[Rfam]
RNA sequence: CGAUCCCGCGCGGGAGAGUUCCGUGACCGCCAGCCACGGACGCCGAAGGAGCAACACCUCUCCGUCAACCUCUCAGGCACCCGGACCGCGCGGGGACA
Dot-bracket structure: .....((((((((......((((((.........)))))).(((((..(((....((......))....))))).))).......)))))))).....
Notes: Glycine riboswitch aptamer: a 98-nucleotide RNA from Mycobacterium noviomagense. It scores 69 bits against the family's covariance model. From the family's description: This family represents the bacterial glycine riboswitch. Glycine riboswitches usually consist of two metabolite-binding aptamers domains with similar structures in tandem. The aptamers cooperatively bind glycine to regulate the expression of downstream genes. In Bacillus subtilis, this riboswitch is found upstream of the gcvT operon which controls glycine degradation.